[Rfam]
RNA sequence: UGGCGCCCAACCUGGGGCUUGGAUACUGAGGCAGCAGUGAGGGAGACGAUGUGAAAAAAAAUGCAUUGGACAAAUUUUGAGACACAUUGGAGCCAGAGGGGAACCUGCCUCGGCUGAAACUGAAAGUAAGUGGAAACUCUGAUCAUGGGGCAAGAAUUGAGUCAGCAUGAGCAGUUAAAAGAGGCUUUAAAGACAUGGGGAGUAAAGGUUAAAACUACAGAUUUAUUUCAUUUCUUUGAUUUUGUAAAGGACACUUGUCCCU
Numbered sequence: 001u002g003g004c005g006c007c008c009a010a011c012c013u014g015g016g017g018c019u020u021g022g023a024u025a026c027u028g029a030g031g032c033a034g035c036a037g038u039g040a041g042g043g044a045g046a047c048g049a050u051g052u053g054a055a056a057a058a059a060a061a062u063g064c065a066u067u068g069g070a071c072a073a074a075u076u077u078u079g080a081g082a083c084a085c086a087u088u089g090g091a092g093c094c095a096g097a098g099g100g101g102a103a104c105c106u107g108c109c110u111c112g113g114c115u116g117a118a119a120c121u122g123a124a125a126g127u128a129a130g131u132g133g134a135a136a137c138u139c140u141g142a143u144c145a146u147g148g149g150g151c152a153a154g155a156a157u158u159g160a161g162u163c164a165g166c167a168u169g170a171g172c173a174g175u176u177a178a179a180a181g182a183g184g185c186u187u188u189a190a191a192g193a194c195a196u197g198g199g200g201a202g203u204a205a206a207g208g209u210u211a212a213a214a215c216u217a218c219a220g221a222u223u224u225a226u227u228u229c230a231u232u233u234c235u236u237u238g239a240u241u242u243u244g245u246a247a248a249g250g251a252c253a254c255u256u257g258u259c260c261c262u
Stems, first nucleotide, its partner, number of pairs: 006031002013025002037047002084127002087123002094116002098110003138149004158189003161185003196238007206224005247262001249260004
Rfam assigns this 262-nucleotide RNA from Nannospalax galili to the family "Mason-Pfizer monkey virus packaging signal". The family's RNA type in Rfam is cis-regulatory element. For this family Rfam cites "Secondary structure model of the Mason-Pfizer monkey virus 5' leader sequence: identification of a structural motif common to a variety of retroviruses" (Harrison et al., J Virol, 1995). Rfam describes the family as follows. This family represents a group of sequences that are related to the Mason-Pfizer monkey virus (MPMV) packaging signal. The packaging signal is located in the 5' UTR and is required for specific RNA encapsidation. The match comes from Rfam's covariance-model search (135 bits).